[Rfam]
RNA sequence: ACAACAAUAACAACAAGCACUAACCCUAAUAACAAUAAAACGUAACGACUCGAACACAACAACAAUAAUAAGUAAGAGCCGCAGCUAACUGAUUUUUUUGGAGAAGGUUAAAUAAUAAUACAACAAGCAAACAGUCCGAUUUGAUGAAGAGAACAACAAAAACUGCUAAAGCAGCUGCCAACAUCAAUGACUACCUGUUGCUGACCCGCUUCCAAAGCAAUCCGUUUGCUAUUCGCUUGAGAUUUUCAAGCACCCUAACAGCAAAAUAACAACAACAAAGCUGCAAUAAAAAUAACAAACAACCAGAACCUAAAAGGGGAAGCUUAAGCUUCCCCUUUGUUCAUUAAGCUGUUACUUACUUG
Numbered sequence: 001a002c003a004a005c006a007a008u009a010a011c012a013a014c015a016a017g018c019a020c021u022a023a024c025c026c027u028a029a030u031a032a033c034a035a036u037a038a039a040a041c042g043u044a045a046c047g048a049c050u051c052g053a054a055c056a057c058a059a060c061a062a063c064a065a066u067a068a069u070a071a072g073u074a075a076g077a078g079c080c081g082c083a084g085c086u087a088a089c090u091g092a093u094u095u096u097u098u099u100g101g102a103g104a105a106g107g108u109u110a111a112a113u114a115a116u117a118a119u120a121c122a123a124c125a126a127g128c129a130a131a132c133a134g135u136c137c138g139a140u141u142u143g144a145u146g147a148a149g150a151g152a153a154c155a156a157c158a159a160a161a162a163c164u165g166c167u168a169a170a171g172c173a174g175c176u177g178c179c180a181a182c183a184u185c186a187a188u189g190a191c192u193a194c195c196u197g198u199u200g201c202u203g204a205c206c207c208g209c210u211u212c213c214a215a216a217g218c219a220a221u222c223c224g225u226u227u228g229c230u231a232u233u234c235g236c237u238u239g240a241g242a243u244u245u246u247c248a249a250g251c252a253c254c255c256u257a258a259c260a261g262c263a264a265a266a267u268a269a270c271a272a273c274a275a276c277a278a279a280g281c282u283g284c285a286a287u288a289a290a291a292a293u294a295a296c297a298a299a300c301a302a303c304c305a306g307a308a309c310c311u312a313a314a315a316g317g318g319g320a321a322g323c324u325u326a327a328g329c330u331u332c333c334c335c336u337u338u339g340u341u342c343a344u345u346a347a348g349c350u351g352u353u354a355c356u357u358a359c360u361u362g
Stems, first nucleotide, its partner, number of pairs: 046081002049078003096217005110210001139188001141187005163174004235251005259351004298341004315336009
This 362-nucleotide sequence from Thiopseudomonas alkaliphila belongs to the Rfam family "Pseudomonas sRNA CrcZ". By type it is a small RNA. The organism belongs to Thiopseudomonas, within Bacteria. It scores 166 bits against the family's covariance model. Gene Ontology term of the family: carbon catabolite repression of transcription. For this family Rfam cites "Identification of 17 Pseudomonas aeruginosa sRNAs and prediction of sRNA-encoding genes in 10 diverse pathogens using the bioinformatic tool sRNAPredict2" (Livny et al., Nucleic Acids Res, 2006).